Source information:
The family of this 347-nucleotide part of an RNA from Chondrus crispus is "Eukaryotic large subunit ribosomal RNA". The base pairs follow the family's consensus structure, which is taken from published work. The organism belongs to Chondrus, within Eukaryota.

RNA sequence: GAGUUGUCGUCGCGGCAGUAAUUCAAGGCAGUACGAGAGGAACGCUUGAUUCAAAUCGCUGGUACAUGCAGCUGCAGGAGCCUGCAGUGCUGCGACGCUACCGUUUGAAUGAUCAGAAAGGCUGAGAGAGUCUAAGCCUGGAUCGGUUCUGCUCAGCGACGACUCCGUGUUUUUGCAAAGUGGACGUGUCCGCAUAGCCGCAAGGCCAGCACCAUUCUAAAUUUCUUGUUCAAAGUGCAAAGAUCGAAUAACUUGUAGAUGACUGGGUUGGAACCAGAGUGUGUAAGCUCUCGAGUAGCCUUUGUUGCUACGAUUGGCUGAGCAUAUCUGCUGUUCUUUAUAUUCGU
Numbered sequence: 001g002a003g004u005u006g007u008c009g010u011c012g013c014g015g016c017a018g019u020a021a022u023u024c025a026a027g028g029c030a031g032u033a034c035g036a037g038a039g040g041a042a043c044g045c046u047u048g049a050u051u052c053a054a055a056u057c058g059c060u061g062g063u064a065c066a067u068g069c070a071g072c073u074g075c076a077g078g079a080g081c082c083u084g085c086a087g088u089g090c091u092g093c094g095a096c097g098c099u100a101c102c103g104u105u106u107g108a109a110u111g112a113u114c115a116g117a118a119a120g121g122c123u124g125a126g127a128g129a130g131u132c133u134a135a136g137c138c139u140g141g142a143u144c145g146g147u148u149c150u151g152c153u154c155a156g157c158g159a160c161g162a163c164u165c166c167g168u169g170u171u172u173u174u175g176c177a178a179a180g181u182g183g184a185c186g187u188g189u190c191c192g193c194a195u196a197g198c199c200g201c202a203a204g205g206c207c208a209g210c211a212c213c214a215u216u217c218u219a220a221a222u223u224u225c226u227u228g229u230u231c232a233a234a235g236u237g238c239a240a241a242g243a244u245c246g247a248a249u250a251a252c253u254u255g256u257a258g259a260u261g262a263c264u265g266g267g268u269u270g271g272a273a274c275c276a277g278a279g280u281g282u283g284u285a286a287g288c289u290c291u292c293g294a295g296u297a298g299c300c301u302u303u304g305u306u307g308c309u310a311c312g313a314u315u316g317g318c319u320g321a322g323c324a325u326a327u328c329u330g331c332u333g334u335u336c337u338u339u340a341u342a343u344u345c346g347u
Stems, first nucleotide, its partner, number of pairs: 006163008016151003021051001023049005052107005060100003067094005072087006110145002119139005170243007246345005252266002255263001270337005276329003280324002287318003295311005